The record is a 59-nucleotide RNA sequence from Rhodococcus ruber, which matches "Actino-pnp RNA" in Rfam. The match comes from Rfam's covariance-model search (58 bits). The base pairs follow the family's consensus structure, which is taken from published work. The source organism's lineage runs through Bacteria, Bacillati, Nocardiaceae, Rhodococcus and Rhodococcus ruber.

RNA sequence: GUCGGUCUUCGGUAGUGACCUUCCGGACCCGGUCCGGACGGUUUCGAUCGACGACCGCC
Numbered sequence: 001g002u003c004g005g006u007c008u009u010c011g012g013u014a015g016u017g018a019c020c021u022u023c024c025g026g027a028c029c030c031g032g033u034c035c036g037g038a039c040g041g042u043u044u045c046g047a048u049c050g051a052c053g054a055c056c057g058c059c
Stems, first nucleotide, its partner, number of pairs: 001059001003057005009051005017043004022038007